[Rfam]
RNA: Small nucleolar RNA snoR27
RNA sequence: UCUGGGUUGAUGAUGCUAUCACUGCGUUAUCUACCCGCAAUCCCCUCAAGGAAUUGAGGAAAACUAUGACAUACUGAAACCCAGG
Numbered sequence: 001u002c003u004g005g006g007u008u009g010a011u012g013a014u015g016c017u018a019u020c021a022c023u024g025c026g027u028u029a030u031c032u033a034c035c036c037g038c039a040a041u042c043c044c045c046u047c048a049a050g051g052a053a054u055u056g057a058g059g060a061a062a063a064c065u066a067u068g069a070c071a072u073a074c075u076g077a078a079a080c081c082c083a084g085g
Stems, first nucleotide, its partner, number of pairs: 001085007